[Rfam]
RNA sequence: AUAGCAGAAGCAGGGGCCAUAGUAGAAGCAUUCACAUUGCAACCCCCUAUCAGGUAAUAUCUGGUAACACCUGUGAAGUUUGCU
Numbered sequence: 001a002u003a004g005c006a007g008a009a010g011c012a013g014g015g016g017c018c019a020u021a022g023u024a025g026a027a028g029c030a031u032u033c034a035c036a037u038u039g040c041a042a043c044c045c046c047c048u049a050u051c052a053g054g055u056a057a058u059a060u061c062u063g064g065u066a067a068c069a070c071c072u073g074u075g076a077a078g079u080u081u082g083c084u
Stems, first nucleotide, its partner, number of pairs: 013047002015044002021084006028040003051073005
The record is an 84-nucleotide RNA sequence from Alligator sinensis, which matches "Mammalian CPEB3 ribozyme" in Rfam.
The base pairs follow the family's consensus structure, which is taken from published work.
A search with the family's covariance model found it, with a score of 47 bits.